[Rfam]
RNA sequence: CGGCACUCUGGAAAGCGGGCGGGACACCGCCCCACCGAAGGGGUAAGCAUGGGCGCCGGCUGGCGUUCCUGCGAAAGCUCUCAGGUUCCGUGACAGAGGGGGCGGC
Numbered sequence: 001c002g003g004c005a006c007u008c009u010g011g012a013a014a015g016c017g018g019g020c021g022g023g024a025c026a027c028c029g030c031c032c033c034a035c036c037g038a039a040g041g042g043g044u045a046a047g048c049a050u051g052g053g054c055g056c057c058g059g060c061u062g063g064c065g066u067u068c069c070u071g072c073g074a075a076a077g078c079u080c081u082c083a084g085g086u087u088c089c090g091u092g093a094c095a096g097a098g099g100g101g102g103c104g105g106c
Base pairs, nucleotide, nucleotide: 004100006098007097008096009095010094017032018031019030020029034086035085036084037082038081041080042079043078047072048071
The family of this 106-nucleotide sequence from Sphingomonas sp. MM-1 is "Glycine riboswitch aptamer".